[Rfam]
RNA sequence: ACCUGUUGCGGGGCGGCGAAGGCGGCGGCCGCAACACAAGACACACAUCGUGCCUCGGGAAGAACGUGGCACUUUAGGGCGUU
Numbered sequence: 001a002c003c004u005g006u007u008g009c010g011g012g013g014c015g016g017c018g019a020a021g022g023c024g025g026c027g028g029c030c031g032c033a034a035c036a037c038a039a040g041a042c043a044c045a046c047a048u049c050g051u052g053c054c055u056c057g058g059g060a061a062g063a064a065c066g067u068g069g070c071a072c073u074u075u076a077g078g079g080c081g082u083u
Stems, first nucleotide, its partner, number of pairs: 004036008013026002016023002050072005056066002